[Rfam]
RNA sequence: CUUCAACGAUCCCAGCCACAGGGGCUGUUCGCGGUCCUUGCCGUAAGUGGCGAGCAGCGCCUGCGCCUC
Numbered sequence: 001c002u003u004c005a006a007c008g009a010u011c012c013c014a015g016c017c018a019c020a021g022g023g024g025c026u027g028u029u030c031g032c033g034g035u036c037c038u039u040g041c042c043g044u045a046a047g048u049g050g051c052g053a054g055c056a057g058c059g060c061c062u063g064c065g066c067c068u069c
Base pairs, nucleotide, nucleotide: 014026015025016024017023032059033058037054038053039052041050042049043048
Overview: ASpks TB sRNA: a 69-nucleotide RNA sequence from Streptomyces morookaense. The match comes from Rfam's covariance-model search (72 bits). Lineage of the source: Bacteria > Bacillati > Actinomycetota > Actinomycetes > Streptomyces. The base pairs follow the family's consensus structure, which is taken from published work. The family's RNA type in Rfam is antisense RNA. For this family Rfam cites "Identification of small RNAs in Mycobacterium tuberculosis" (Arnvig and Young, Mol Microbiol, 2009).